Shown here is a 91-nucleotide RNA from Arcticibacter svalbardensis, a member of the family "TPP riboswitch aptamer (THI element)". NCBI's taxonomy places the organism under Bacteria, Bacteroidota, Sphingobacteriia, Sphingobacteriales, Arcticibacter svalbardensis. Pairs were carried over by alignment from the consensus structure, which is taken from published work.
[Rfam]
RNA sequence: AUAAUACUUUAGGGGUGCCCAUAGGCUGAGAUCAAGACCCUUUGAACCUGAUGCUGCUCGUACAGCCGAAGGGAAAAGUUAUAUAUAAUUA
Numbered sequence: 001a002u003a004a005u006a007c008u009u010u011a012g013g014g015g016u017g018c019c020c021a022u023a024g025g026c027u028g029a030g031a032u033c034a035a036g037a038c039c040c041u042u043u044g045a046a047c048c049u050g051a052u053g054c055u056g057c058u059c060g061u062a063c064a065g066c067c068g069a070a071g072g073g074a075a076a077a078g079u080u081a082u083a084u085a086u087a088a089u090u091a
Stems, first nucleotide, its partner, number of pairs: 006079005011041004016035001017026003047072003053066004